[Rfam]
Nucleotides: 036
Base pairs, nucleotide, nucleotide: 001036002035003034004033005032006031007030008029010028012027013026014025015024016023017021
Number, partner (000 for none) and nucleotide at each position: 001036g002035a003034g004033g005032u006031u007030c008029u009000u010028g011000c012027u013026u014025c015024a016023g017021c018000a019000g020000u021017g022000u023016u024015u025014g026013g027012a028010c029008g030007g031006a032005a033004c034003c035002u036001c
This 36-nucleotide sequence from Monodelphis domestica belongs to the Rfam family "Iron response element I". The literature on the family includes a 1999 paper in Insect Biochem Mol Biol by Huang et al., "An atypical iron-responsive element (IRE) within crayfish ferritin mRNA and an iron regulatory protein 1 (IRP1)-like protein from crayfish hepatopancreas". The organism belongs to Monodelphis, within Eukaryota. Rfam classes the family as a cis-regulatory element. Rfam's curators put it in the seed alignment. The base pairs follow the family's consensus structure, which is taken from published work.